The record is a 270-nucleotide part of an RNA from uncultured crenarchaeote, which matches "Archaeal large subunit ribosomal RNA" in Rfam.

[Rfam]
RNA sequence: GAGAUUGCUGUCAUGGCAAGCUUAACCUUUUACAAAGGGAAUGCGAAGGGAAACCGAAUUUGCGCAUUUUCUCUUUAUUGAGAAAAGAGGCAAUGGAUCUGAAAGGGUCUCAAGUCAUGGCAGUAAGGCUAGAAACCGGACGAUCUAUUCCUGGAUAAGACGAAGGUGAGUGAAAACUCGCUGGAGGUCUGCAAGGGUCCUGACGUGCAAAUCGGUCCCCUGAUCUGGGAUUAGGGGUCAAAAACCAAUCUAGUCCGGUGAUCGCUAGUU
Number, nucleotide and partner (000 for none) at each position: 001g000002a000003g000004a000005u126006u125007g124008c123009u122010g121011u120012c119013a118014u117015g116016g115017c114018a000019a000020g044021c043022u000023u041024a000025a000026c038027c037028u036029u035030u000031u000032a000033c000034a000035a029036a028037g027038g026039g000040a000041a023042u000043g021044c020045g000046a000047a000048g055049g054050g000051a000052a000053a000054c049055c048056g000057a000058a000059u000060u093061u092062g091063c090064g000065c000066a000067u086068u085069u084070u083071c082072u081073c080074u000075u000076u000077a000078u000079u000080g073081a072082g071083a070084a069085a068086a067087g000088a000089g000090g063091c062092a061093a060094u000095g000096g109097a108098u107099c106100u000101g000102a000103a000104a000105g000106g099107g098108u097109c096110u000111c000112a000113a000114g017115u016116c015117a014118u013119g012120g011121c010122a009123g008124u007125a006126a005127g000128g000129c268130u267131a000132g265133a000134a000135a000136c258137c257138g256139g255140a254141c253142g000143a000144u000145c234146u233147a232148u000149u230150c229151c228152u227153g226154g225155a224156u222157a000158a190159g189160a188161c187162g000163a000164a000165g182166g181167u180168g179169a178170g177171u176172g000173a000174a000175a000176a171177c170178u169179c168180g167181c166182u165183g000184g000185a000186g000187g161188u160189c159190u158191g000192c000193a000194a000195g219196g218197g217198u000199c215200c214201u000202g213203a212204c000205g000206u000207g000208c000209a000210a000211a000212u203213c202214g200215g199216u000217c197218c196219c195220c000221u000222g156223a000224u155225c154226u153227g152228g151229g150230a149231u000232u147233a146234g145235g000236g246237g245238u244239c000240a000241a000242a000243a000244a238245c237246c236247a000248a000249u000250c000251u000252a000253g141254u140255c139256c138257g137258g136259u000260g000261a000262u000263c000264g000265c132266u000267a130268g129269u000270u000